Annotation: A member of the RNA family "permuted transfer-messenger RNA" from Rickettsia typhi, 440 nucleotides long.
[Rfam]
RNA sequence: AGUAAUAAACGUAAUUUAGAAUAGAGGUUGCGGACUCGGGGGCAGUACCCGACGCCUCCACCAAUAUUCGAUGAACUCCAAAAAUUUGCUGCGUCAUUUUAUUAAGUGCUGUGGUCUUUAUGUGUUAAGUAACUGCUCACGCUUUUUGUAGUUGAUCUAUAUAUGUAUGAUUUUCGGUUUAAAUUGAAUUUAAUUUUGAGAAAUGCGCGAAGUUUACAAAUGAAUAUAUGAGCUAUGAGCAUCACGAACAAUUGAUAAAAUGAAAGAGUAAUAUUAAAUAAAGUAAAGAUAAGUAGAAUUUUUUGGGGGCGAAAUAGGAUCGACGUGCCUAAUAAAAAAAUUGCUUUUACUCGGUAUGAUCCCACCGAUGGCUUUUGCCAUAUGGGUCAAAACAAAGAAACGCAAACGAUAAUAAGCGUUAUGUAGGUGUUGCCGCUUUA
Number, nucleotide and partner (000 for none) at each position: 001a351002g350003u349004a348005a347006u000007a000008a000009a000010c000011g000012u000013a000014a341015u340016u339017u338018a000019g000020a000021a000022u000023a000024g000025a000026g329027g328028u327029u000030g326031c325032g324033g000034a000035c000036u052037c051038g050039g049040g048041g000042g000043c000044a000045g000046u000047a000048c040049c039050c038051g037052a036053c311054g310055c309056c308057u307058c306059c305060a000061c000062c000063a000064a000065u000066a000067u000068u000069c000070g000071a000072u000073g000074a000075a000076c000077u000078c000079c000080a000081a000082a000083a000084a000085u000086u000087u000088g000089c000090u000091g000092c000093g000094u000095c000096a000097u000098u000099u000100u000101a000102u000103u000104a000105a000106g000107u000108g000109c000110u000111g000112u000113g000114g000115u000116c000117u000118u000119u000120a000121u000122g000123u000124g000125u000126u000127a000128a000129g000130u000131a000132a000133c000134u000135g000136c000137u000138c000139a000140c000141g000142c000143u000144u000145u000146u000147u000148g000149u000150a000151g000152u000153u000154g000155a000156u000157c000158u000159a000160u000161a000162u000163a000164u000165g000166u000167a000168u000169g000170a000171u000172u000173u000174u000175c000176g000177g000178u000179u000180u000181a000182a000183a000184u000185u000186g000187a000188a000189u000190u000191u000192a000193a000194u000195u000196u000197u000198g000199a000200g000201a000202a000203a000204u000205g000206c000207g000208c000209g000210a000211a000212g000213u000214u000215u000216a000217c000218a000219a000220a000221u000222g000223a000224a000225u000226a000227u000228a000229u000230g000231a000232g000233c000234u000235a000236u000237g000238a000239g000240c000241a000242u000243c000244a000245c000246g000247a000248a000249c000250a000251a000252u000253u000254g000255a000256u000257a000258a000259a000260a000261u000262g000263a000264a000265a000266g000267a000268g000269u000270a000271a000272u000273a000274u000275u000276a000277a000278a000279u000280a000281a000282a000283g000284u000285a000286a000287a000288g000289a000290u000291a000292a000293g000294u000295a000296g000297a000298a000299u000300u000301u000302u000303u000304u000305g059306g058307g057308g056309g055310c054311g053312a000313a000314a000315u000316a000317g000318g000319a000320u000321c000322g000323a000324c032325g031326u030327g028328c027329c026330u000331a000332a000333u000334a000335a000336a000337a000338a017339a016340a015341u014342u000343g000344c000345u000346u000347u005348u004349a003350c002351u001352c367353g366354g365355u364356a000357u000358g000359a000360u000361c000362c000363c000364a355365c354366c353367g352368a000369u000370g000371g000372c000373u000374u000375u000376u000377g000378c000379c000380a000381u000382a000383u000384g000385g000386g000387u000388c000389a000390a000391a000392a000393c000394a000395a000396a000397g000398a000399a000400a000401c000402g000403c000404a000405a000406a000407c000408g000409a000410u000411a000412a000413u000414a000415a000416g000417c000418g000419u000420u000421a000422u000423g000424u000425a000426g000427g000428u000429g000430u000431u000432g000433c000434c000435g000436c000437u000438u000439u000440a000

Source information:
From the family's description: Bacterial tmRNA, also known as 10Sa RNA or SsrA, is named for its dual tRNA and mRNA-like properties. Its role is to liberate the mRNA from a stalled ribosome. The sequence is in the family's curated seed alignment. The source organism's lineage runs through Bacteria, Pseudomonadati, Pseudomonadota, Rickettsieae and Rickettsia.